RNA sequence: AGCGAAGACAGGUUAGAAACCUGUCCGCCGGAAGUCCAAGGUUUCCGAUCCAAUGUAAAUCAGGGUCGGGUUAGCCGGUACCCUAAGGCGAGGCCGAGAGGCGUAGCCGAUGGGAAGCAGGUUAAUAUUCCUGCGCCGGCUAUGUGGAGGCCGAGGCGUGACGCAGAAGGGUAGCCCUCGGGAGGCUCUGGAUUGUCUCCUCUAAGCCCGUAGGGUGAGGGAUAGGCAAAUCCGUCCCUCAUCAAGCCUGAAAGGUGAUGGGGAGGGAAGGCAUAGACCUUCCCAACGGGGGUGACCCCAGGCUGCCAAGAAAUAACGUCGCGGCCGUUGAAGCAUAGCCGACCGUACCGCAAAUCGACACAGAUGGACUGGGUUAGUAGCCUAAGGCGGU
Numbered sequence: 001a002g003c004g005a006a007g008a009c010a011g012g013u014u015a016g017a018a019a020c021c022u023g024u025c026c027g028c029c030g031g032a033a034g035u036c037c038a039a040g041g042u043u044u045c046c047g048a049u050c051c052a053a054u055g056u057a058a059a060u061c062a063g064g065g066u067c068g069g070g071u072u073a074g075c076c077g078g079u080a081c082c083c084u085a086a087g088g089c090g091a092g093g094c095c096g097a098g099a100g101g102c103g104u105a106g107c108c109g110a111u112g113g114g115a116a117g118c119a120g121g122u123u124a125a126u127a128u129u130c131c132u133g134c135g136c137c138g139g140c141u142a143u144g145u146g147g148a149g150g151c152c153g154a155g156g157c158g159u160g161a162c163g164c165a166g167a168a169g170g171g172u173a174g175c176c177c178u179c180g181g182g183a184g185g186c187u188c189u190g191g192a193u194u195g196u197c198u199c200c201u202c203u204a205a206g207c208c209c210g211u212a213g214g215g216u217g218a219g220g221g222a223u224a225g226g227c228a229a230a231u232c233c234g235u236c237c238c239u240c241a242u243c244a245a246g247c248c249u250g251a252a253a254g255g256u257g258a259u260g261g262g263g264a265g266g267g268a269a270g271g272c273a274u275a276g277a278c279c280u281u282c283c284c285a286a287c288g289g290g291g292g293u294g295a296c297c298c299c300a301g302g303c304u305g306c307c308a309a310g311a312a313a314u315a316a317c318g319u320c321g322c323g324g325c326c327g328u329u330g331a332a333g334c335a336u337a338g339c340c341g342a343c344c345g346u347a348c349c350g351c352a353a354a355u356c357g358a359c360a361c362a363g364a365u366g367g368a369c370u371g372g373g374u375u376a377g378u379a380g381c382c383u384a385a386g387g388c389g390g391u
Stems, first nucleotide, its partner, number of pairs: 007025006026389004034369004040349002045069006054062002076345004082113002087108003091104001093102003117134005137341009150325002155320005163306004169299003174293005180201006202261002206256003213249003217240007225233002265284007355364002371383004
The family of this 391-nucleotide part of an RNA from Hydrogenivirga sp. 128-5-R1-1 is "Bacterial large subunit ribosomal RNA". NCBI's taxonomy places the organism under Bacteria, Pseudomonadati, Aquificia, Aquificaceae, Hydrogenivirga.